[Rfam]
Rfam assigns this 74-nucleotide RNA sequence from Oxyruncus cristatus to the family "Small nucleolar RNA SNORD66". The family's consensus secondary structure was predicted with RNAalifold. The literature on the family includes a 2001 paper in EMBO J by Huttenhofer et al., "RNomics: an experimental approach that identifies 201 candidates for novel, small, non-messenger RNAs in mouse". From the family's description: snoRNA HBII-142 is part of the C/D family of snoRNAs. It is the human orthologue of the mouse MBII-142 snoRNA and is predicted to guide 2'O-ribose methylation of small 18S rRNA at residue C1272.
RNA sequence: CUUCAGUGCUGUCUGUUUUGUGCCACUUUUGUUGGCCACAGAGAAACCAAGAAGGACCAAGAGAAGCCAAGAAG
Numbered sequence: 001c002u003u004c005a006g007u008g009c010u011g012u013c014u015g016u017u018u019u020g021u022g023c024c025a026c027u028u029u030u031g032u033u034g035g036c037c038a039c040a041g042a043g044a045a046a047c048c049a050a051g052a053a054g055g056a057c058c059a060a061g062a063g064a065a066g067c068c069a070a071g072a073a074g
Stems, first nucleotide, its partner, number of pairs: 001074004